[Rfam]
RNA: serC leader
RNA sequence: AAGUGGGCCACGUCUCCCCAACGAGACGCGUGCUAUCUGAGAGGAUAGAAACA
Number, nucleotide and partner (000 for none) at each position: 001a000002a000003g000004u000005g000006g000007g000008c000009c000010a000011c028012g027013u026014c025015u024016c023017c000018c000019c000020a000021a000022c000023g016024a015025g014026a013027c012028g011029c000030g000031u000032g000033c048034u047035a046036u045037c044038u043039g000040a000041g000042a000043g038044g037045a036046u035047a034048g033049a000050a000051a000052c000053a000